[Rfam]
RNA sequence: CACGCCGAGGGGCGCUGCGACCGUGUCUUGGCCGAAGCUCGACCACGCGGCCAGGCUCGGUGCGGCAGUCAGUACAACCGCGCCCGCCGGGU
Numbered sequence: 001c002a003c004g005c006c007g008a009g010g011g012g013c014g015c016u017g018c019g020a021c022c023g024u025g026u027c028u029u030g031g032c033c034g035a036a037g038c039u040c041g042a043c044c045a046c047g048c049g050g051c052c053a054g055g056c057u058c059g060g061u062g063c064g065g066c067a068g069u070c071a072g073u074a075c076a077a078c079c080g081c082g083c084c085c086g087c088c089g090g091g092u
Base pairs, nucleotide, nucleotide: 003062004061005060006059007058008057021050022049023048024047025046026045
A member of the RNA family "SAH (S-adenosyl-L-homocysteine) riboswitch aptamer" from Metallibacterium scheffleri, 92 nucleotides long. A search with the family's covariance model found it, with a score of 54 bits.